[Rfam]
RNA sequence: GUUGUCUCAGGGCAAACUAGCGGAAACGCUAGGACGCAAAGCCACGGGUCUAAGGGCACAUGUGCCUAUGAUCGCCGGGUUGCCACU
Numbered sequence: 001g002u003u004g005u006c007u008c009a010g011g012g013c014a015a016a017c018u019a020g021c022g023g024a025a026a027c028g029c030u031a032g033g034a035c036g037c038a039a040a041g042c043c044a045c046g047g048g049u050c051u052a053a054g055g056g057c058a059c060a061u062g063u064g065c066c067u068a069u070g071a072u073c074g075c076c077g078g079g080u081u082g083c084c085a086c087u
Base pairs, nucleotide, nucleotide: 012037013036017032018031019030020029021028022027040081041080042079043078045077046076047075048072049071050070055066056065057064058063
The record is an 87-nucleotide RNA from Kyrpidia spormannii, which matches "c-di-GMP-I riboswitch aptamer" in Rfam.
Lineage of the source: Bacteria > Bacillota > Bacilli > Alicyclobacillaceae > Kyrpidia.
The family's consensus secondary structure is taken from published work.